Shown here is a 204-nucleotide sequence from Miscanthus lutarioriparius, a member of the family "MIR1435 microRNA precursor family". The source organism's lineage runs through Eukaryota, Magnoliopsida, Mesangiospermae, Saccharinae and Miscanthus. Gene Ontology terms of the family: RISC complex and miRNA-mediated post-transcriptional gene silencing. The match comes from Rfam's covariance-model search (97 bits).

Nucleotides: 204
Stems, first nucleotide, its partner, number of pairs: 006198004011193016031173002034170002046154007055145003059141002062138002065135003072128001074126004
Number, partner (000 for none) and nucleotide at each position: 001000u002000a003000g004000a005000g006198u007197u008196g009195u010000c011193c012192u013191a014190a015189g016188u017187u018186a019185a020184a021183c022182u023181u024180u025179u026178g027000u028000a029000a030000g031173u032172u033000c034170g035169a036000c037000c038000a039000a040000c041000u042000u043000u044000a045000c046154a047153g048152g049151a050150a051149a052148g053000a054000a055145u056144a057143u058000g059141a060140a061000c062138a063137u064000c065135u066134a067133u068000a069000a070000u071000a072128c073000c074126a075125a076124a077123u078000a079000a080000g081000u082000a083000c084000a085000u086000u087000g088000c089000a090000a091000a092000a093000a094000u095000a096000u097000a098000u099000u100000u101000c102000g103000u104000g105000g106000u107000g108000u109000a110000u111000g112000u113000a114000a115000u116000g117000a118000u119000u120000c121000a122000a123077a124076u125075u126074u127000u128072g129000u130000g131000u132000c133067a134066u135065a136000a137063a138062u139000a140060u141059u142000g143057g144056u145055g146000u147000u148052c149051u150050u151049u152048u153047u154046u155000u156000u157000c158000u159000a160000u161000a162000a163000a164000u165000u166000g167000g168000g169035u170034c171000a172032a173031a174000g175000u176000u177000a178026c179025a180024a181023a182022a183021g184020u185019u186018u187017g188016a189015c190014u191013u192012a193011g194000a195009a196008c197007a198006a199000g200000u201000c202000u203000a204000g